[Rfam]
RNA sequence: CCCCGUUGUGGAGAUGGCAUGCCUCCCUUAACCGCCGGUUAGCGCGUAACGAUACCGGCUGAUGAUGCCUACAAGUUC
Numbered sequence: 001c002c003c004c005g006u007u008g009u010g011g012a013g014a015u016g017g018c019a020u021g022c023c024u025c026c027c028u029u030a031a032c033c034g035c036c037g038g039u040u041a042g043c044g045c046g047u048a049a050c051g052a053u054a055c056c057g058g059c060u061g062a063u064g065a066u067g068c069c070u071a072c073a074a075g076u077u078c
Stems, first nucleotide, its partner, number of pairs: 010026004016069005034059006
Shown here is a 78-nucleotide sequence from Ralstonia pickettii, a member of the family "Fluoride riboswitch aptamer (crcB RNA motif)". Its family is annotated with positive regulation of gene expression and response to fluoride in the Gene Ontology. It is one of the family's seed sequences. The organism belongs to Ralstonia pickettii, within Bacteria.